RNA: Small nucleolar RNA SNORA20
RNA sequence: AAUAACAAAAAUGCAUGUACUAGUCUUUUCAAUGGUAUGAGCAGUUAUACUCAUGGGAUAAAAUAACAUUAGACCAUUGUCAAUUGAGAUGGAGUAACCAUUUCAUCUCUUCUGCAUGCAUGGUCUAGACAAAA
Numbered sequence: 001a002a003u004a005a006c007a008a009a010a011a012u013g014c015a016u017g018u019a020c021u022a023g024u025c026u027u028u029u030c031a032a033u034g035g036u037a038u039g040a041g042c043a044g045u046u047a048u049a050c051u052c053a054u055g056g057g058a059u060a061a062a063a064u065a066a067c068a069u070u071a072g073a074c075c076a077u078u079g080u081c082a083a084u085u086g087a088g089a090u091g092g093a094g095u096a097a098c099c100a101u102u103u104c105a106u107c108u109c110u111u112c113u114g115c116a117u118g119c120a121u122g123g124u125c126u127a128g129a130c131a132a133a134a
Stems, first nucleotide, its partner, number of pairs: 002054002013045002016043003020039001021037002024035002069128008078116003086109010